[Rfam]
RNA sequence: AGGACCCACGUCUCAUGAUCCGGAUACUGGACCUAACAUAAUUGGGUUCAGUGUCGGAACCCAACAUAAUUGGGUCCGAACACAGGACUCAAGGCUAAUGGGUCUU
Numbered sequence: 001a002g003g004a005c006c007c008a009c010g011u012c013u014c015a016u017g018a019u020c021c022g023g024a025u026a027c028u029g030g031a032c033c034u035a036a037c038a039u040a041a042u043u044g045g046g047u048u049c050a051g052u053g054u055c056g057g058a059a060c061c062c063a064a065c066a067u068a069a070u071u072g073g074g075u076c077c078g079a080a081c082a083c084a085g086g087a088c089u090c091a092a093g094g095c096u097a098a099u100g101g102g103u104c105u106u
Stems, first nucleotide, its partner, number of pairs: 001106008013094002016091003019087003023083001028078009042064008
Source information:
The record is a 106-nucleotide RNA from Populus trichocarpa, which matches "MIR6450 microRNA precursor family" in Rfam. Rfam links the family to the GO terms miRNA-mediated post-transcriptional gene silencing and RISC complex. Lineage of the source: Eukaryota > Streptophyta > Embryophyta > Euphyllophyta > Populus. It is one of the family's seed sequences.